[Rfam]
RNA sequence: CCAACAUGGAUACCCUGGGAAGUCACUCUACCCAGGCUCUGUCCAAGUCACGUAGAGGAGCAUAGGGCUCCACCCCAUGAUGUACAGUCCCUUUCCACAAUGUUGGAGAUGAAGCUGGGCCUUGCAUCUGCACCUGCAUAUUCCUACAACUUCUCAGAGUCCUGUGGACAAUGACUAGGGAGACAAACCAUGCAGGAAACAUGU
Numbered sequence: 001c002c003a004a005c006a007u008g009g010a011u012a013c014c015c016u017g018g019g020a021a022g023u024c025a026c027u028c029u030a031c032c033c034a035g036g037c038u039c040u041g042u043c044c045a046a047g048u049c050a051c052g053u054a055g056a057g058g059a060g061c062a063u064a065g066g067g068c069u070c071c072a073c074c075c076c077a078u079g080a081u082g083u084a085c086a087g088u089c090c091c092u093u094u095c096c097a098c099a100a101u102g103u104u105g106g107a108g109a110u111g112a113a114g115c116u117g118g119g120c121c122u123u124g125c126a127u128c129u130g131c132a133c134c135u136g137c138a139u140a141u142u143c144c145u146a147c148a149a150c151u152u153c154u155c156a157g158a159g160u161c162c163u164g165u166g167g168a169c170a171a172u173g174a175c176u177a178g179g180g181a182g183a184c185a186a187a188c189c190a191u192g193c194a195g196g197a198a199a200c201a202u203g204u
Base pairs, nucleotide, nucleotide: 001106002105003104004103005102006101007100008044009043010042011041012040014036015035016034018029019028020027047098048097057090058089059088060085062083063082064081065078133196134195135194136193137192138191139190150182151181152180153179154178159169160168161167162166
RNA: Small nucleolar RNA SNORA73 family
Organism: Otolemur garnettii